A member of the RNA family "7SK RNA" from Chaetops frenatus, 320 nucleotides long.
The family's consensus secondary structure is taken from published work.
It scores 139 bits against the family's covariance model.
Rfam classes the family as a non-coding RNA gene.
The source organism's lineage runs through Eukaryota, Chordata, Gnathostomata, Amniota and Chaetops.
[Rfam]
RNA sequence: GGGUGUGAGGGCAGUCUGGCUGUGGGAUCUAGUAAGCCGCUGGUUGCAUGGGUUGAUUUGACUGACCUGGCUAGCUUAGGCAGGUGUUCCCUUUCUUCCUCAGCAUUCCAUGUGUGUUCCUCCUGAUGCUGUGUGCUUGGUUAAGGAGGGCAGCCUCCCCAGUAGACAUGGCACUGUUCAUUGGUCAAGGACGUGCGGUAGCUGUACUCCCCUGCUGUAAGUCCUAAGGUCUAUUUGCAGGUGAAUUUGUAGGGUAGUCAAGCAUCCAAUACUGAGGACACAUCCAAAUGAGAAGCUGAAUGCAGCAGUAGUCUGCCACU
Numbered sequence: 001g002g003g004u005g006u007g008a009g010g011g012c013a014g015u016c017u018g019g020c021u022g023u024g025g026g027a028u029c030u031a032g033u034a035a036g037c038c039g040c041u042g043g044u045u046g047c048a049u050g051g052g053u054u055g056a057u058u059u060g061a062c063u064g065a066c067c068u069g070g071c072u073a074g075c076u077u078a079g080g081c082a083g084g085u086g087u088u089c090c091c092u093u094u095c096u097u098c099c100u101c102a103g104c105a106u107u108c109c110a111u112g113u114g115u116g117u118u119c120c121u122c123c124u125g126a127u128g129c130u131g132u133g134u135g136c137u138u139g140g141u142u143a144a145g146g147a148g149g150g151c152a153g154c155c156u157c158c159c160c161a162g163u164a165g166a167c168a169u170g171g172c173a174c175u176g177u178u179c180a181u182u183g184g185u186c187a188a189g190g191a192c193g194u195g196c197g198g199u200a201g202c203u204g205u206a207c208u209c210c211c212c213u214g215c216u217g218u219a220a221g222u223c224c225u226a227a228g229g230u231c232u233a234u235u236u237g238c239a240g241g242u243g244a245a246u247u248u249g250u251a252g253g254g255u256a257g258u259c260a261a262g263c264a265u266c267c268a269a270u271a272c273u274g275a276g277g278a279c280a281c282a283u284c285c286a287a288a289u290g291a292g293a294a295g296c297u298g299a300a301u302g303c304a305g306c307a308g309u310a311g312u313c314u315g316c317c318a319c320u
Stems, first nucleotide, its partner, number of pairs: 001109003006102006013094002018091002024088002027085004033079001037070003042067004046062001117171002121166002123140004128136002141162002148159003201263003207257002210254006222245001224243001287320001290316001292314001294312001295309004